[Rfam]
RNA sequence: GCCAUGCCCUAGGGUAGCUCCCGAAAGGCCGGAACCUUCACCGGCUUGGCAUGGCACCUAUUCCCGAAGG
Numbered sequence: 001g002c003c004a005u006g007c008c009c010u011a012g013g014g015u016a017g018c019u020c021c022c023g024a025a026a027g028g029c030c031g032g033a034a035c036c037u038u039c040a041c042c043g044g045c046u047u048g049g050c051a052u053g054g055c056a057c058c059u060a061u062u063c064c065c066g067a068a069g070g
Stems, first nucleotide, its partner, number of pairs: 001055008012022003028045005035070005